This 56-nucleotide sequence from Peribacillus saganii belongs to the Rfam family "Bacillaceae-1 RNA". The match comes from Rfam's covariance-model search (40 bits). It is annotated as a small RNA. Pairs were carried over by alignment from the consensus structure, which is taken from published work.
RNA sequence: UUCGAAGGACGAACGGCUAGGAUCGCCAUGUCCUGUGGCAACGCCGUUCUGACCCA
Numbered sequence: 001u002u003c004g005a006a007g008g009a010c011g012a013a014c015g016g017c018u019a020g021g022a023u024c025g026c027c028a029u030g031u032c033c034u035g036u037g038g039c040a041a042c043g044c045c046g047u048u049c050u051g052a053c054c055c056a
Stems, first nucleotide, its partner, number of pairs: 011049007025039005